[Rfam]
Shown here is a 109-nucleotide sequence from Acrobeloides nanus, a member of the family "SL2 RNA". By type it is a non-coding RNA gene. Its Rfam clan is "SL clan". This family represents SL2 RNA. SL2 RNA is involved in trans splicing in lower eukaryotes. Trans-splicing is a form of RNA processing. The acquisition of a spliced leader from a SL RNA is a intra-molecular reaction which precisely joins exons derived from separately transcribed RNAs. Approximately 25% of C. elegans genes are organised into polycistronic transcription units and the presence of SL2 on an mRNA is an indication the the gene is in an operon. The family has 30 seed sequences and 598 matches in Rfam 15.1. For this family Rfam cites "trans splicing of polycistronic Caenorhabditis elegans pre-mRNAs: analysis of the SL2 RNA" (Evans and Blumenthal, Mol Cell Biol, 2000). Gene Ontology term of the family: mRNA trans splicing, via spliceosome. The organism belongs to Acrobeloides, within Eukaryota.
RNA sequence: GGUUUUUACCCAGUAUCAAAAGGUACUAGGAUGUUUUGACCGGUUCUACGAACUGUGUUGGAUAAACCAAAUUUUUUGAACGCACUUCUGGGAUUAGCCGGGAGUGCAA
Numbered sequence: 001g002g003u004u005u006u007u008a009c010c011c012a013g014u015a016u017c018a019a020a021a022g023g024u025a026c027u028a029g030g031a032u033g034u035u036u037u038g039a040c041c042g043g044u045u046c047u048a049c050g051a052a053c054u055g056u057g058u059u060g061g062a063u064a065a066a067c068c069a070a071a072u073u074u075u076u077u078g079a080a081c082g083c084a085c086u087u088c089u090g091g092g093a094u095u096a097g098c099c100g101g102g103a104g105u106g107c108a109a
Base pairs, nucleotide, nucleotide: 008034009030010029013026014025015024016023017022037060038059039058040057041055042054043053044052045051082107083106084105085104086103087102088101089100090099091098